Shown here is a 76-nucleotide sequence from Leptobrachium leishanense, a member of the family "mir-16 microRNA precursor family".
Its family is annotated with miRNA-mediated post-transcriptional gene silencing and RISC complex in the Gene Ontology.
The family has 14 seed sequences and 4,705 matches in Rfam 15.1.
Its Rfam clan is "mir-15 clan".
Pairs were carried over by alignment from the consensus structure, which was predicted with PFOLD.
RNA sequence: GUUCCCCAUGUGCAGCACAGAACUCUGGGUAAGACAUGCAUGUCUUACCCAGAGUUCUGUGCUGCAUAUGGGGAAU
Numbered sequence: 001g002u003u004c005c006c007c008a009u010g011u012g013c014a015g016c017a018c019a020g021a022a023c024u025c026u027g028g029g030u031a032a033g034a035c036a037u038g039c040a041u042g043u044c045u046u047a048c049c050c051a052g053a054g055u056u057c058u059g060u061g062c063u064g065c066a067u068a069u070g071g072g073g074a075a076u
Stems, first nucleotide, its partner, number of pairs: 001076003005072003010069001011066008020056001022055008
Dot-bracket structure: (((.(((..(((((((((.(.((((((((..................)))))))))..))))))))..)))).)))